[Rfam]
The family of this 122-nucleotide sequence from Aquariibacter albus is "Burkholderia RNA 11". Co-purified with Hfq, expression confirmed by Northern blot. The literature on the family includes a 2013 paper in Genomics by Ramos et al., "Experimental identification of small non-coding regulatory RNAs in the opportunistic human pathogen Burkholderia cenocepacia J2315". Gene Ontology term of the family: protein binding. The source organism's lineage runs through Bacteria, Pseudomonadota, Burkholderiales, Sphaerotilaceae and Aquariibacter. Rfam classes the family as a small RNA.

RNA sequence: GCAAUCUGCAGCAGGCGCGCAGCGACAAGGUGGUGUUCCGCUCGCUGCUCGGCAUCUCCUGGAUGUGGUUCUACGGUGCGGUGUUCCUGAGCCAGUUCCCCGCCUUCGCGAAGACGGUGCUG
Number, nucleotide and partner (000 for none) at each position: 001g000002c000003a000004a000005u000006c000007u000008g000009c000010a049011g048012c047013a000014g045015g043016c000017g041018c040019g039020c000021a037022g036023c035024g034025a000026c032027a000028a000029g000030g000031u000032g026033g000034u024035g023036u022037u021038c000039c019040g018041c017042u000043c015044g000045c014046u000047g012048c011049u010050c000051g121052g120053c119054a118055u117056c000057u000058c000059c113060u112061g000062g000063a105064u000065g103066u000067g099068g098069u000070u000071c095072u094073a000074c000075g000076g000077u089078g088079c000080g087081g086082u000083g000084u000085u000086c081087c080088u078089g077090a000091g000092c000093c000094a072095g071096u000097u000098c068099c067100c000101c000102g000103c065104c000105u063106u000107c000108g000109c000110g000111a000112a060113g059114a000115c000116g000117g055118u054119g053120c052121u051122g000